[Rfam]
The record is a 95-nucleotide RNA sequence from Yarrowia lipolytica, which matches "Small nucleolar RNA Z13/snr52" in Rfam. The organism belongs to Yarrowia, within Eukaryota.
RNA sequence: UCAACCACAAUGAUGAAGCAUUAGGAUGUAAAUUAUUUCACCCGAGAGCGCAAAAAACCGUGCGGAUAUUUCCUGCCUUCCUUCUGAUUUUGUGU
Numbered sequence: 001u002c003a004a005c006c007a008c009a010a011u012g013a014u015g016a017a018g019c020a021u022u023a024g025g026a027u028g029u030a031a032a033u034u035a036u037u038u039c040a041c042c043c044g045a046g047a048g049c050g051c052a053a054a055a056a057a058c059c060g061u062g063c064g065g066a067u068a069u070u071u072c073c074u075g076c077c078u079u080c081c082u083u084c085u086g087a088u089u090u091u092g093u094g095u
Base pairs, nucleotide, nucleotide: 004093005092023074024073025072026071